A member of the RNA family "Small nucleolar RNA SNORA55" from Alectura lathami, 129 nucleotides long. The organism belongs to Alectura, within Eukaryota. The base pairs follow the family's consensus structure, which was predicted with PFOLD.
[Rfam]
RNA sequence: GCACCUGAUCUUUCCCAUUCCUUGCUGUGCAGUGCGAGCCUGGGGACACACGGUGCUUACAGAAAAGCAGAGUAAAUCCAGACGGGUGCUUUUUCACUGAGUUCUUGUCUCUACACCUCUGCAACAGCU
Numbered sequence: 001g002c003a004c005c006u007g008a009u010c011u012u013u014c015c016c017a018u019u020c021c022u023u024g025c026u027g028u029g030c031a032g033u034g035c036g037a038g039c040c041u042g043g044g045g046a047c048a049c050a051c052g053g054u055g056c057u058u059a060c061a062g063a064a065a066a067g068c069a070g071a072g073u074a075a076a077u078c079c080a081g082a083c084g085g086g087u088g089c090u091u092u093u094u095c096a097c098u099g100a101g102u103u104c105u106u107g108u109c110u111c112u113a114c115a116c117c118u119c120u121g122c123a124a125c126a127g128c129u
Stems, first nucleotide, its partner, number of pairs: 001056005012046006020038001067122006080110007089101003